[Rfam]
RNA sequence: UGCCACUUGGCAAAAAUUAAGCCGACCAAGAGGUAUGGGUUAGUAAGAUUGCCGAAAAUCCAUAAGGCUUAUAAGUAA
Numbered sequence: 001u002g003c004c005a006c007u008u009g010g011c012a013a014a015a016a017u018u019a020a021g022c023c024g025a026c027c028a029a030g031a032g033g034u035a036u037g038g039g040u041u042a043g044u045a046a047g048a049u050u051g052c053c054g055a056a057a058a059u060c061c062a063u064a065a066g067g068c069u070u071a072u073a074a075g076u077a078a
Stems, first nucleotide, its partner, number of pairs: 001012004020069004034064007047052001
The record is a 78-nucleotide RNA, which matches "RT-18 RNA" in Rfam. It is one of the family's seed sequences.